[Rfam]
RNA sequence: GGCCGAUGUUGACAGGCAGAGACAGGAGCAACUGCUGGUGUGUCCUAGGAGCAUUGCACUUGUCUCGGUCUGACAGUGUUGGCA
Numbered sequence: 001g002g003c004c005g006a007u008g009u010u011g012a013c014a015g016g017c018a019g020a021g022a023c024a025g026g027a028g029c030a031a032c033u034g035c036u037g038g039u040g041u042g043u044c045c046u047a048g049g050a051g052c053a054u055u056g057c058a059c060u061u062g063u064c065u066c067g068g069u070c071u072g073a074c075a076g077u078g079u080u081g082g083c084a
Base pairs, nucleotide, nucleotide: 002083003082004081006079007078008077009076014071015070016069017068019066020065021064022063023062028057029056030055031054034052035051036050037046038045
mir-25 microRNA precursor family: an 84-nucleotide RNA sequence from Aquarana catesbeiana. Pairs were carried over by alignment from the consensus structure, which was predicted with RNAalifold. Its family is annotated with miRNA-mediated post-transcriptional gene silencing and RISC complex in the Gene Ontology. It scores 63 bits against the family's covariance model. NCBI's taxonomy places the organism under Eukaryota, Opisthokonta, Tetrapoda, Anura, Aquarana. For this family Rfam cites "Discovering microRNAs from deep sequencing data using miRDeep" (Friedlander et al., Nat Biotechnol, 2008).